[Rfam]
RNA sequence: UAAACUGGAACUCAGGUAAAGAACGCCGCGUCCUGCGGCAUUACCUGAGUGACCGGCUUCAUCCUGG
Numbered sequence: 001u002a003a004a005c006u007g008g009a010a011c012u013c014a015g016g017u018a019a020a021g022a023a024c025g026c027c028g029c030g031u032c033c034u035g036c037g038g039c040a041u042u043a044c045c046u047g048a049g050u051g052a053c054c055g056g057c058u059u060c061a062u063c064c065u066g067g
Stems, first nucleotide, its partner, number of pairs: 011049007025039005053067004
This 67-nucleotide sequence from Domibacillus mangrovi belongs to the Rfam family "Bacillaceae-1 RNA". A search with the family's covariance model found it, with a score of 47 bits. By type it is a small RNA. NCBI's taxonomy places the organism under Bacteria, Bacillati, Bacillota, Bacillaceae, Domibacillus. Pairs were carried over by alignment from the consensus structure, which is taken from published work.